RNA sequence: ACUGUGUGAUGAUAAUCUUCAGACUGAGCAUUCUGUAGUUGGUCCUUGGCAUGUGUAUGAUGCAACAUAGUGUUUCAAGACGGGACUGAUGGUGGC
Numbered sequence: 001a002c003u004g005u006g007u008g009a010u011g012a013u014a015a016u017c018u019u020c021a022g023a024c025u026g027a028g029c030a031u032u033c034u035g036u037a038g039u040u041g042g043u044c045c046u047u048g049g050c051a052u053g054u055g056u057a058u059g060a061u062g063c064a065a066c067a068u069a070g071u072g073u074u075u076c077a078a079g080a081c082g083g084g085a086c087u088g089a090u091g092g093u094g095g096c
Stems, first nucleotide, its partner, number of pairs: 001093004